[Rfam]
RNA sequence: CUUUAACAAUCUGGAACAAGCUGAAAAUUGAAACAUGACGGCUGAAACUUGUCCCUCCGUAGAAGUAGUGGGAUAAGGAGUAACCUGUCAUAGAGUCUCUCAAAUGUUUGCAACACGAAGUGAAACAUCUUCGG
Numbered sequence: 001c002u003u004u005a006a007c008a009a010u011c012u013g014g015a016a017c018a019a020g021c022u023g024a025a026a027a028u029u030g031a032a033a034c035a036u037g038a039c040g041g042c043u044g045a046a047a048c049u050u051g052u053c054c055c056u057c058c059g060u061a062g063a064a065g066u067a068g069u070g071g072g073a074u075a076a077g078g079a080g081u082a083a084c085c086u087g088u089c090a091u092a093g094a095g096u097c098u099c100u101c102a103a104a105u106g107u108u109u110g111c112a113a114c115a116c117g118a119a120g121u122g123a124a125a126c127a128u129c130u131u132c133g134g
Stems, first nucleotide, its partner, number of pairs: 020111002023109003027105003034093001036090006116133003120129001
Source information:
The family of this 134-nucleotide sequence from Serratia rubidaea is "Salmonella enterica Typhi npcRNA 44". The family's RNA type in Rfam is non-coding RNA gene. It scores 75 bits against the family's covariance model. Lineage of the source: Bacteria > Pseudomonadati > Pseudomonadota > Gammaproteobacteria > Serratia.